[Rfam]
RNA sequence: CGCCUAAACUCGUUGGAUUUUCCACCGGGCAUGGCGCCAAAGACCCUUCACAGAUACUGAACCCCGCGUUCAGCGACUCUGUGAAGGGCUAUAUCGGGAAACCGGUAUGGGGCCGCAAGGCCU
Numbered sequence: 001c002g003c004c005u006a007a008a009c010u011c012g013u014u015g016g017a018u019u020u021u022c023c024a025c026c027g028g029g030c031a032u033g034g035c036g037c038c039a040a041a042g043a044c045c046c047u048u049c050a051c052a053g054a055u056a057c058u059g060a061a062c063c064c065c066g067c068g069u070u071c072a073g074c075g076a077c078u079c080u081g082u083g084a085a086g087g088g089c090u091a092u093a094u095c096g097g098g099a100a101a102c103c104g105g106u107a108u109g110g111g112g113c114c115g116c117a118a119g120g121c122c123u
Base pairs, nucleotide, nucleotide: 001036002035003034004033009029010028011027012026014024015023016022017021044088045087046086047085048084049083050082051081052080053079054078055075057073058072059071060070061069062068090109091108092107093106094105095104096103097102110123111122112121113120114119
This 123-nucleotide sequence belongs to the Rfam family "LOOT RNA". Rfam classes the family as a small RNA.